Notes
This 131-nucleotide RNA from Dialister micraerophilus belongs to the Rfam family "Streptococcus sRNA SpR18". The source organism's lineage runs through Bacteria, Bacillati, Negativicutes, Veillonellales and Dialister micraerophilus. The family has 23 seed sequences and 63 matches in Rfam 15.1.
RNA sequence: CUUAAUACAAGCUAUAAAGAAAAUGAAAAAUGGCUACUGGUACUCAAAUGGUACUGGAAGUAAAAAAUAAUUGAAAUAAUAGUUCCAAGUGGUUUAUAUUUGGACAAAAAAUUAGAUCAUAACUUAAGUGU
Dot-bracket structure: .....((..(((((................)))))..)).((.....((((.......(........).............((.(((((((.....)))))))))...........))))....)).....